[Rfam]
RNA sequence: UGCAAAUUCUGGCCAAAUCCCGAGGCAUUCGGGAACGGAGGACCCAAUCAGUAGGGGUUAAUCCCACAUUCUUGUGGGAGGGAUGAGAAACUCUUUCGCCAUCCUACCCGUCAGCUAACUUCGUCGGCUAAAGCGAGGGAGGUC
Numbered sequence: 001u002g003c004a005a006a007u008u009c010u011g012g013c014c015a016a017a018u019c020c021c022g023a024g025g026c027a028u029u030c031g032g033g034a035a036c037g038g039a040g041g042a043c044c045c046a047a048u049c050a051g052u053a054g055g056g057g058u059u060a061a062u063c064c065c066a067c068a069u070u071c072u073u074g075u076g077g078g079a080g081g082g083a084u085g086a087g088a089a090a091c092u093c094u095u096u097c098g099c100c101a102u103c104c105u106a107c108c109c110g111u112c113a114g115c116u117a118a119c120u121u122c123g124u125c126g127g128c129u130a131a132a133g134c135g136a137g138g139g140a141g142g143u144c
Stems, first nucleotide, its partner, number of pairs: 011129004018034007035124006045054001055109003063078004081104004